[Rfam]
RNA: Purine riboswitch aptamer
RNA sequence: AAUAAAAAGUUAAUUUAGAUUCGUAUAACCCCAAUAAUAUGGUUUGGGGGUUUCUACCAGGAGCCUAUAAUUCCUGAUUACGAAGAAGAUACAAGUAUAU
Numbered sequence: 001a002a003u004a005a006a007a008a009g010u011u012a013a014u015u016u017a018g019a020u021u022c023g024u025a026u027a028a029c030c031c032c033a034a035u036a037a038u039a040u041g042g043u044u045u046g047g048g049g050g051u052u053u054c055u056a057c058c059a060g061g062a063g064c065c066u067a068u069a070a071u072u073c074c075u076g077a078u079u080a081c082g083a084a085g086a087a088g089a090u091a092c093a094a095g096u097a098u099a100u
Base pairs, nucleotide, nucleotide: 020084021083022082023081024080025079029049030048031047032046033045034044058076059075060074061073062072063071